[Rfam]
Nucleotides: 333
Stems, first nucleotide, its partner, number of pairs: 004331003008327001009325003014271006023097009102317002105315004118130004136151004141146001153243001160234006170225003181215001183213002195205004273302012
Number, partner (000 for none) and nucleotide at each position: 001000g002000a003000a004331c005330c006329a007000c008327a009325c010324g011323c012000a013000g014271a015270a016269u017268c018267g019266c020000a021000c022000a023097u024096u025095g026094a027093a028092g029091c030090a031089u032000c033000a034000c035000a036000g037000u038000u039000c040000u041000a042000c043000g044000a045000u046000g047000a048000g049000g050000c051000u052000g053000a054000u055000c056000u057000c058000g059000c060000g061000a062000u063000c064000a065000g066000a067000c068000c069000u070000c071000a072000a073000c074000c075000g076000a077000a078000a079000u080000a081000u082000c083000a084000u085000u086000g087000c088000a089031a090030u091029g092028c093027u094026u095025u096024a097023g098000g099000g100000a101000a102317a103316g104000u105315c106314c107313u108312c109000g110000g111000a112000c113000c114000u115000c116000a117000c118130g119129g120128c121127a122000g123000a124000a125000a126000g127121u128120g129119c130118c131000g132000c133000c134000a135000a136151u137150a138149a139148u140000c141146c142000a143000c144000u145000g146141g147000u148139a149138u150137u151136a152000c153243u154000u155000u156000g157000u158000c159000c160234a161233c162232a163231a164230a165229a166000g167000a168000u169000u170225g171224a172223u173000c174000g175000u176000u177000g178000u179000g180000u181215g182000u183213g184212c185000c186000g187000a188000g189000a190000u191000c192000a193000u194000c195205u196204c197203u198202c199000a200000u201000u202198g203197a204196g205195a206000g207000a208000a209000g210000u211000a212184g213183c214000u215181c216000c217000u218000u219000a220000a221000u222000g223172a224171u225170c226000u227000g228000a229165u230164u231163u232162u233161g234160u235000u236000u237000g238000g239000c240000u241000c242000a243153g244000u245000g246000u247000u248000u249000g250000u251000c252000a253000u254000g255000g256000u257000u258000a259000c260000a261000g262000u263000u264000a265000u266019g267018c268017g269016a270015u271014u272000g273302c274301g275300g276299u277298u278297g279296a280295u281294u282293c283292u284291c285000u286000u287000u288000a289000c290000u291284g292283a293282g294281g295280a296279u297278u298277g299276a300275u301274u302273g303000u304000a305000a306000c307000u308000c309000a310000a311000c312108g313107g314106g315105g316103c317102u318000c319000a320000c321000u322000c323011g324010c325009g326000c327008u328000a329006u330005g331004g332000a333000g